[Rfam]
RNA sequence: GAUGAAUGGUGUGCACGGUGCAAGUCUGUGUUAUGUGUUGUUGCUGGACUGUGUUUUGCAGACUGGGCAGCAGCACUCACUCCACACCUGCAGCCAUAGAACAACUAGAGAUCAUAGUACUGGCCCUUGAUGUCGUUAUUGACAUGUUACCAUUGGUCAGCCUCCAAACUCUCCAACAUGC
Numbered sequence: 001g002a003u004g005a006a007u008g009g010u011g012u013g014c015a016c017g018g019u020g021c022a023a024g025u026c027u028g029u030g031u032u033a034u035g036u037g038u039u040g041u042u043g044c045u046g047g048a049c050u051g052u053g054u055u056u057u058g059c060a061g062a063c064u065g066g067g068c069a070g071c072a073g074c075a076c077u078c079a080c081u082c083c084a085c086a087c088c089u090g091c092a093g094c095c096a097u098a099g100a101a102c103a104a105c106u107a108g109a110g111a112u113c114a115u116a117g118u119a120c121u122g123g124c125c126c127u128u129g130a131u132g133u134c135g136u137u138a139u140u141g142a143c144a145u146g147u148u149a150c151c152a153u154u155g156g157u158c159a160g161c162c163u164c165c166a167a168a169c170u171c172u173c174c175a176a177c178a179u180g181c
Stems, first nucleotide, its partner, number of pairs: 013091003030080002035077001036075006043068002045065003050060003108173004120160006129154004134146001135143003

Rfam assigns this 181-nucleotide RNA from Mola mola to the family "Small nucleolar RNA SNORA23". Pairs were carried over by alignment from the consensus structure, which was predicted with RNAalifold. Gene Ontology terms of the family: RNA processing and nucleolus. It scores 90 bits against the family's covariance model. The members of this family belong to the H/ACA class of snoRNAs which are thought to guide the sites of modification of uridines to pseudouridines. This family includes human snoRNA ACA23 (SNORA23) and mouse snoMBI-1. ACA23 is predicted to guide the pseudouridylation of residue U3737 and U4331 of 28S rRNA. The family has 9 seed sequences and 1,092 matches in Rfam 15.1.